[Rfam]
RNA sequence: GGAACCCGCGCGGGAGAGACCUCGGUGAUCGUGCCGGGGCGCCGAAGGAGCAAGCACCCCGCACACUCUCAGGCAGCGAGAACCGCUCGGGUGAG
Numbered sequence: 001g002g003a004a005c006c007c008g009c010g011c012g013g014g015a016g017a018g019a020c021c022u023c024g025g026u027g028a029u030c031g032u033g034c035c036g037g038g039g040c041g042c043c044g045a046a047g048g049a050g051c052a053a054g055c056a057c058c059c060c061g062c063a064c065a066c067u068c069u070c071a072g073g074c075a076g077c078g079a080g081a082a083c084c085g086c087u088c089g090g091g092u093g094a095g
Stems, first nucleotide, its partner, number of pairs: 006090003010086004020039004041074003044070002048068003054062002
Source information: Rfam assigns this 95-nucleotide RNA sequence from Saccharothrix sp. to the family "Glycine riboswitch aptamer". The pairing is the family consensus, mapped onto this sequence. The match comes from Rfam's covariance-model search (57 bits).